[Rfam]
RNA: U2 spliceosomal RNA
Organism: Protea cynaroides
RNA sequence: ACUUUUUCUGGCCUCUUGGCUAAGAUUAAGUGUAAAGUUUAAUGUCUGGUACGUGGGUCAUCGACUCACAUGACAUUAAAUUAAUUUUUCUCUGGGGGAGGGCCCCUCUCAGGGAUGAGACGAUUUGGAUUCCACUAUGAUGGCUUGCUAUUGGGGUCCUCAAGCGUCGUCCAUGCGUUGCACUACUGCAUGGGCCUGACGCACCCCAC
Numbered sequence: 001a002c003u004u005u006u007u008c009u010g011g012c013c014u015c016u017u018g019g020c021u022a023a024g025a026u027u028a029a030g031u032g033u034a035a036a037g038u039u040u041a042a043u044g045u046c047u048g049g050u051a052c053g054u055g056g057g058u059c060a061u062c063g064a065c066u067c068a069c070a071u072g073a074c075a076u077u078a079a080a081u082u083a084a085u086u087u088u089u090c091u092c093u094g095g096g097g098g099a100g101g102g103c104c105c106c107u108c109u110c111a112g113g114g115a116u117g118a119g120a121c122g123a124u125u126u127g128g129a130u131u132c133c134a135c136u137a138u139g140a141u142g143g144c145u146u147g148c149u150a151u152u153g154g155g156g157u158c159c160u161c162a163a164g165c166g167u168c169g170u171c172c173a174u175g176c177g178u179u180g181c182a183c184u185a186c187u188g189c190a191u192g193g194g195c196c197u198g199a200c201g202c203a204c205c206c207c208a209c
Stems, first nucleotide, its partner, number of pairs: 007025003010021004036047002053069007098161008164202006171193006